[Rfam]
RNA: MIR396 microRNA precursor family
Organism: Arachis hypogaea
Nucleotides: 140
Base pairs, nucleotide, nucleotide: 003137004136005135006134007133013127014126015125017123018122019121020120021119022118024116025115026114027113029111030110031109032108033107034106035105036104
Number, partner (000 for none) and nucleotide at each position: 001000g002000g003137u004136c005135a006134u007133g008000c009000u010000u011000u012000u013127c014126c015125a016000c017123a018122g019121c020120u021119u022118u023000c024116u025115u026114g027113a028000a029111c030110u031109u032108c033107u034106u035105g036104u037000a038000u039000g040000u041000g042000c043000a044000u045000c046000c047000a048000u049000c050000c051000a052000u053000c054000u055000c056000a057000a058000c059000u060000u061000c062000u063000u064000c065000u066000a067000a068000g069000u070000a071000a072000g073000u074000a075000u076000g077000u078000a079000a080000u081000u082000a083000c084000a085000g086000u087000c088000u089000u090000a091000u092000c093000c094000c095000u096000a097000c098000a099000a100000c101000u102000a103000a104036g105035c106034a107033a108032g109031a110030a111029g112000c113027u114026c115025a116024a117000g118022a119021a120020a121019g122018c123017u124000g125015u126014g127013g128000g129000a130000g131000a132000a133007u134006a135005u136004g137003g138000c139000a140000a